[Rfam]
RNA sequence: UUAUUGGCUAGACUGGAGGGUUAGGGGUCCUCUGUAAGCACACACCCUCUUAGGUGCAGUUGAAGUUCAGGAGGCGGCUUUUUGAUUUAAUGUCAGCCUGAAAAAUUGAUAUAGAAACUUCGUCCUACAGGAUUAGUGGUCAUAAGGCUUUAACUGGAGGGUUAAAGUUAAUUAUGUUUAUUUUGGGAAUGUGUCAGGCCUGGAAAGGAGCAGCUCUACCAUUAACAUCUGAUGCUUGUAGAGUAGCGGGGUGGAGUUGAUUUUUUGGAGCACUGGUGUUAUUGAGAUCAGUCCACUUCUGAACAUGCCAUUCA
Numbered sequence: 001u002u003a004u005u006g007g008c009u010a011g012a013c014u015g016g017a018g019g020g021u022u023a024g025g026g027g028u029c030c031u032c033u034g035u036a037a038g039c040a041c042a043c044a045c046c047c048u049c050u051u052a053g054g055u056g057c058a059g060u061u062g063a064a065g066u067u068c069a070g071g072a073g074g075c076g077g078c079u080u081u082u083u084g085a086u087u088u089a090a091u092g093u094c095a096g097c098c099u100g101a102a103a104a105a106u107u108g109a110u111a112u113a114g115a116a117a118c119u120u121c122g123u124c125c126u127a128c129a130g131g132a133u134u135a136g137u138g139g140u141c142a143u144a145a146g147g148c149u150u151u152a153a154c155u156g157g158a159g160g161g162u163u164a165a166a167g168u169u170a171a172u173u174a175u176g177u178u179u180a181u182u183u184u185g186g187g188a189a190u191g192u193g194u195c196a197g198g199c200c201u202g203g204a205a206a207g208g209a210g211c212a213g214c215u216c217u218a219c220c221a222u223u224a225a226c227a228u229c230u231g232a233u234g235c236u237u238g239u240a241g242a243g244u245a246g247c248g249g250g251g252u253g254g255a256g257u258u259g260a261u262u263u264u265u266u267g268g269a270g271c272a273c274u275g276g277u278g279u280u281a282u283u284g285a286g287a288u289c290a291g292u293c294c295a296c297u298u299c300u301g302a303a304c305a306u307g308c309c310a311u312u313c314a
Stems, first nucleotide, its partner, number of pairs: 001314001003312001005310004011061004015033007038057004065304009076293004081287002088281009098268013112254001117252007125241007132233005137227002139178001141176005146169010181224001184221003191216001193214002199208003
Dot-bracket structure: (.(.((((..(((((((((((.....)))))))....((((............))))))))...(((((((((..((((.((.....(((((((((.(((((((((((((.(....(((((((.(((((((((((((((.(((((((((((((((....))))))))))..))))).)..(..(((....(.((....(((....)))....)).)..)))..).)).))))).)))))))....))))))).).)))))))))))))....)))))))))....))..))))..)))))))))..)))).).)
RNA: Archaeal signal recognition particle RNA
Organism: Methanobrevibacter cuticularis